[Rfam]
RNA: mir-148/mir-152 microRNA precursor family
RNA sequence: GAGGCAAAGUUCUGGGACACUCAGACUCUGAUUAGGAUAGAAGUCAGUGCACUACAGAACUUUGUCUC
Numbered sequence: 001g002a003g004g005c006a007a008a009g010u011u012c013u014g015g016g017a018c019a020c021u022c023a024g025a026c027u028c029u030g031a032u033u034a035g036g037a038u039a040g041a042a043g044u045c046a047g048u049g050c051a052c053u054a055c056a057g058a059a060c061u062u063u064g065u066c067u068c
Base pairs, nucleotide, nucleotide: 002067003066004065005064006063007062008061009060010059011058012057013056014055018049019048020047021046024045025044026043027042